[Rfam]
Record summary:
This 114-nucleotide RNA from Paenibacillus rhizosphaerae belongs to the Rfam family "epsC RNA". The source organism's lineage runs through Bacteria, Bacilli, Caryophanales, Paenibacillaceae and Paenibacillus. The family has 30 seed sequences and 450 matches in Rfam 15.1. The base pairs follow the family's consensus structure, which is taken from published work.
RNA sequence: AGGUCAUGUCUACUGUACCUUUAUCACGGGUAGGCACUCGAUCAUGCUGUGGGUAUUCGGAUACCUUAGACGUUUAUCGUCGAGAGUGUGAUGUGAGGUCGGGUUCAAUGCCCG
Numbered sequence: 001a002g003g004u005c006a007u008g009u010c011u012a013c014u015g016u017a018c019c020u021u022u023a024u025c026a027c028g029g030g031u032a033g034g035c036a037c038u039c040g041a042u043c044a045u046g047c048u049g050u051g052g053g054u055a056u057u058c059g060g061a062u063a064c065c066u067u068a069g070a071c072g073u074u075u076a077u078c079g080u081c082g083a084g085a086g087u088g089u090g091a092u093g094u095g096a097g098g099u100c101g102g103g104u105u106c107a108a109u110g111c112c113c114g
Stems, first nucleotide, its partner, number of pairs: 001020004007036007037097004041092008051066006069081004100114005